[Rfam]
RNA sequence: ACACAGCCGUCUGGAGAGCCGCCCUGCCAUGCAGGGCGCACCGAAGGAGCAAGCACCGCGCGAGGACCGCGCGGCGUGAAUCUCUCAGGUACCGAGGACAGGGGGAGCGGC
Numbered sequence: 001a002c003a004c005a006g007c008c009g010u011c012u013g014g015a016g017a018g019c020c021g022c023c024c025u026g027c028c029a030u031g032c033a034g035g036g037c038g039c040a041c042c043g044a045a046g047g048a049g050c051a052a053g054c055a056c057c058g059c060g061c062g063a064g065g066a067c068c069g070c071g072c073g074g075c076g077u078g079a080a081u082c083u084c085u086c087a088g089g090u091a092c093c094g095a096g097g098a099c100a101g102g103g104g105g106a107g108c109g110g111c
Base pairs, nucleotide, nucleotide: 007105008104010102011101012100013099020038021037022036023035040090041089042088043086044085047084048083049082053077054076
RNA: Glycine riboswitch aptamer
Organism: Acidovorax sp. MR-S7